Notes:
The record is a 136-nucleotide RNA from Liparis tanakae, which matches "Small nucleolar RNA SNORA9" in Rfam. Rfam describes the family as follows. ACA9 is a member of the H/ACA class of snoRNA that guide the sites of modification of uridines to pseudouridines.
RNA sequence: GUGCAGAACUUAUCCAGCGAGGUCCAUCCUGCAGUGGUUGCGUCCUUUCCUGUAGUGUCUGCUAGAGAGACGAGAGGCCGUUUGAGGCCCUGCGGUGGUUCCGCGCUGCAGGGUUAUAGGUAAACCUCCGACAGAG
Numbered sequence: 001g002u003g004c005a006g007a008a009c010u011u012a013u014c015c016a017g018c019g020a021g022g023u024c025c026a027u028c029c030u031g032c033a034g035u036g037g038u039u040g041c042g043u044c045c046u047u048u049c050c051u052g053u054a055g056u057g058u059c060u061g062c063u064a065g066a067g068a069g070a071c072g073a074g075a076g077g078c079c080g081u082u083u084g085a086g087g088c089c090c091u092g093c094g095g096u097g098g099u100u101c102c103g104c105g106c107u108g109c110a111g112g113g114u115u116a117u118a119g120g121u122a123a124a125c126c127u128c129c130g131a132c133a134g135a136g
Stems, first nucleotide, its partner, number of pairs: 003062005009057001020046003025040002028037002074128004088113006095106003